A member of the RNA family "Small nucleolar RNA SNORA31" from Hucho hucho, 136 nucleotides long. The base pairs follow the family's consensus structure, which was predicted with RNAalifold. By type it is an H/ACA-box small nucleolar RNA. ACA31 (SNORA31) belongs to the H/ACA class of snoRNAs which are thought to guide the sites of modification of uridines to pseudouridines. ACA31 is predicted to guide the pseudouridylation of U3713 in 28S rRNA and U218 in 18S rRNA. This family includes the mouse homologue snoMBI-161.
RNA sequence: AUGCAUUCAUCUGAUAGACCUGAAGUUCUCCUCCAUGACUUCUGGGUUUGCAAUUGGAUGCUAAAUUAAAUAUUCCCUUGACUUUCCCCGACUGCCUGACUGAGUGGCAGUACGGAUAGAGAAGAGGAACACAUGA
Dot-bracket structure: ..((((((...((.((((((..(((((.(.....).)))))...))))))))...))))))............(((.((..(..(..(((.(((((.........)))))..))))..)...)).)))........